[Rfam]
RNA sequence: AACGCUGCGCAAGUGGGCCGAAGGUCGACUCCGGCAGCGUGAGGGGCUUCAGCCCGCCCCGGAAAGCUGCAG
Numbered sequence: 001a002a003c004g005c006u007g008c009g010c011a012a013g014u015g016g017g018c019c020g021a022a023g024g025u026c027g028a029c030u031c032c033g034g035c036a037g038c039g040u041g042a043g044g045g046g047c048u049u050c051a052g053c054c055c056g057c058c059c060c061g062g063a064a065a066g067c068u069g070c071a072g
Base pairs, nucleotide, nucleotide: 003039004038005037006036007035008034043060044059045058046057047056

hya RNA: a 72-nucleotide sequence from Mycobacterium marinum. Rfam's curators put it in the seed alignment. By type it is a cis-regulatory element. Pairs were carried over by alignment from the consensus structure, which is taken from published work. The organism belongs to Mycobacterium marinum, within Bacteria.